RNA sequence: CCCCCAAGGGGAAGCGAAGACCCUAUAGAGCUUUACUGCAGGCUGUCGCUGAGACGUGGUCGCUGAUGUGCAGCAUAGAUAGGAGCCGCUACACAGGUACCCGCGCUAGCGGGCCACCGAGGCGCCAUUGAAAUACUAUCCGUCAGUGACUGCGACUCUCACUCCGGGAGGAGAACACCGGUAGCCGGGCAGUUUGACUGGGGCGGUACGCGCUCGAAAAGAUAUCGAGCGCGCCCGAAGGUUCUCUCAUUCGGGUCGGAAACCCGAAGAAGAGCGCAAGAGCAAACGAGAGCCUGACAGUGACAUUCCCAACGAGUGUCGCUGACACGAAAGUGUGGUCUAGCGAACCGACGAGGCCCAUAGAUGGGGCCCGUCGAUGACAGAAAAGCUACCUUAGGGAUAACAGAGUCGUCACCGGCAAGAGCACAUAUCGACCCGGUGGCUUGCUACCUCGAUGUCGGUUCCCUCCAUCCUGCCUGUGCAGAAGCAGGCAAGGGUGAGGUUGUUCGCCUAUUAAAGGAGGUCGUGAGCUGGGUUUAGACCGUCGUGAGACAGGUCGGCUGCUAUCUAUUGGGGGUGCGA
Numbered sequence: 001c002c003c004c005c006a007a008g009g010g011g012a013a014g015c016g017a018a019g020a021c022c023c024u025a026u027a028g029a030g031c032u033u034u035a036c037u038g039c040a041g042g043c044u045g046u047c048g049c050u051g052a053g054a055c056g057u058g059g060u061c062g063c064u065g066a067u068g069u070g071c072a073g074c075a076u077a078g079a080u081a082g083g084a085g086c087c088g089c090u091a092c093a094c095a096g097g098u099a100c101c102c103g104c105g106c107u108a109g110c111g112g113g114c115c116a117c118c119g120a121g122g123c124g125c126c127a128u129u130g131a132a133a134u135a136c137u138a139u140c141c142g143u144c145a146g147u148g149a150c151u152g153c154g155a156c157u158c159u160c161a162c163u164c165c166g167g168g169a170g171g172a173g174a175a176c177a178c179c180g181g182u183a184g185c186c187g188g189g190c191a192g193u194u195u196g197a198c199u200g201g202g203g204c205g206g207u208a209c210g211c212g213c214u215c216g217a218a219a220a221g222a223u224a225u226c227g228a229g230c231g232c233g234c235c236c237g238a239a240g241g242u243u244c245u246c247u248c249a250u251u252c253g254g255g256u257c258g259g260a261a262a263c264c265c266g267a268a269g270a271a272g273a274g275c276g277c278a279a280g281a282g283c284a285a286a287c288g289a290g291a292g293c294c295u296g297a298c299a300g301u302g303a304c305a306u307u308c309c310c311a312a313c314g315a316g317u318g319u320c321g322c323u324g325a326c327a328c329g330a331a332a333g334u335g336u337g338g339u340c341u342a343g344c345g346a347a348c349c350g351a352c353g354a355g356g357c358c359c360a361u362a363g364a365u366g367g368g369g370c371c372c373g374u375c376g377a378u379g380a381c382a383g384a385a386a387a388g389c390u391a392c393c394u395u396a397g398g399g400a401u402a403a404c405a406g407a408g409u410c411g412u413c414a415c416c417g418g419c420a421a422g423a424g425c426a427c428a429u430a431u432c433g434a435c436c437c438g439g440u441g442g443c444u445u446g447c448u449a450c451c452u453c454g455a456u457g458u459c460g461g462u463u464c465c466c467u468c469c470a471u472c473c474u475g476c477c478u479g480u481g482c483a484g485a486a487g488c489a490g491g492c493a494a495g496g497g498u499g500a501g502g503u504u505g506u507u508c509g510c511c512u513a514u515u516a517a518a519g520g521a522g523g524u525c526g527u528g529a530g531c532u533g534g535g536u537u538u539a540g541a542c543c544g545u546c547g548u549g550a551g552a553c554a555g556g557u558c559g560g561c562u563g564c565u566a567u568c569u570a571u572u573g574g575g576g577g578u579g580c581g582a
Stems, first nucleotide, its partner, number of pairs: 001577007010569003014564002022398004027394002029390005035193004042185007051158003055154014078140005085123003100113005162173004196209001197207003210232006235338002241293006247273002250268006274283002298324009326335001328333001349376005355371005407448003411445001412442007422432002459534001460532004464526001465523005472497002476491005500512004540558004544553003